[Rfam]
RNA sequence: GCCAGCAGUCCUUUAGCAGCACGUAAAUAUUGGUGUUAAAAUGGUCCCAAUAUUAACUGUGCUGCUAGAGUAAGGUUGGC
Numbered sequence: 001g002c003c004a005g006c007a008g009u010c011c012u013u014u015a016g017c018a019g020c021a022c023g024u025a026a027a028u029a030u031u032g033g034u035g036u037u038a039a040a041a042u043g044g045u046c047c048c049a050a051u052a053u054u055a056a057c058u059g060u061g062c063u064g065c066u067a068g069a070g071u072a073a074g075g076u077u078g079g080c
Base pairs, nucleotide, nucleotide: 001080002079003078004077005076006075013068014067015066016065017064018063019062020061021060022059023058024056026054027053028052029051031050033048035046
Shown here is an 80-nucleotide sequence from Xenopus tropicalis, a member of the family "mir-15 microRNA precursor family".
The sequence is in the family's curated seed alignment.
On this family, see Lagos-Quintana et al., Science 2001: "Identification of novel genes coding for small expressed RNAs".
This family represents the related mir-15a and mir-15b sequences. In humans miR-15a and miR-16 are clustered within 0.5 kb at 13q14. This region has been shown to be deleted in more than half of B cell chronic lymphocytic leukaemias (CLL). Both miR-15a and miR-16 are deleted or down-regulated in more than two thirds of CLL cases.
Its family is annotated with miRNA-mediated post-transcriptional gene silencing and RISC complex in the Gene Ontology.